[Rfam]
Nucleotides: 080
Base pairs, nucleotide, nucleotide: 004077005076006075007074008073009072010071011070012069013068014067015066016065017064018063020060021059022057023056024055025054026053027052028051031050032049033048
Number, partner (000 for none) and nucleotide at each position: 001000a002000u003000u004077c005076c006075u007074g008073g009072u010071c011070a012069g013068u014067u015066u016065u017064g018063c019000u020060g021059g022057u023056u024055u025054g026053c027052a028051u029000u030000c031050a032049g033048c034000u035000u036000u037000a038000a039000c040000u041000g042000a043000g044000g045000u046000u047000c048033g049032c050031u051028g052027u053026g054025c055024a056023a057022a058000u059021c060020c061000a062000u063018g064017c065016a066015a067014a068013a069012c070011u071010g072009a073008c074007u075006a076005g077004g078000u079000u080000g